[Rfam]
RNA sequence: GUGCCGGCAUAGCCGAGUGGUUACUUCGAUGAAACUUGAAAUUGUCCUCCUCUUGUUCAGGUCUGGCAGCCUCAAACCCGCGGCCUGAAAACCGCAACAUAACCAGCGGCGCCGUCUGGCACUUCU
Numbered sequence: 001g002u003g004c005c006g007g008c009a010u011a012g013c014c015g016a017g018u019g020g021u022u023a024c025u026u027c028g029a030u031g032a033a034a035c036u037u038g039a040a041a042u043u044g045u046c047c048u049c050c051u052c053u054u055g056u057u058c059a060g061g062u063c064u065g066g067c068a069g070c071c072u073c074a075a076a077c078c079c080g081c082g083g084c085c086u087g088a089a090a091a092c093c094g095c096a097a098c099a100u101a102a103c104c105a106g107c108g109g110c111g112c113c114g115u116c117u118g119g120c121a122c123u124u125c126u
Base pairs, nucleotide, nucleotide: 002121003120004119005118006117007116012110013109014108015107018105019104020103025089026088027087028086
Vault RNA: a 126-nucleotide sequence from Plectus sambesii. The base pairs follow the family's consensus structure, which is taken from published work. The family has 73 seed sequences and 2,873 matches in Rfam 15.1.